[Rfam]
Rfam assigns this 81-nucleotide RNA sequence from Pseudonocardia oroxyli to the family "SAH (S-adenosyl-L-homocysteine) riboswitch aptamer". For this family Rfam cites "Riboswitches that sense S-adenosylhomocysteine and activate genes involved in coenzyme recycling" (Wang et al., Mol Cell, 2008). Lineage of the source: Bacteria > Bacillati > Actinomycetes > Pseudonocardiales > Pseudonocardia. The match comes from Rfam's covariance-model search (38 bits).
RNA sequence: CGGACCGAGAGGCGCUGCAGCGGAGGUCACCUCCGCGACGCUCGGUCCGAUGCCGACGACGAGUAAGGGCGCCUCCCCAUC
Numbered sequence: 001c002g003g004a005c006c007g008a009g010a011g012g013c014g015c016u017g018c019a020g021c022g023g024a025g026g027u028c029a030c031c032u033c034c035g036c037g038a039c040g041c042u043c044g045g046u047c048c049g050a051u052g053c054c055g056a057c058g059a060c061g062a063g064u065a066a067g068g069g070c071g072c073c074u075c076c077c078c079a080u081c
Stems, first nucleotide, its partner, number of pairs: 002048007021035006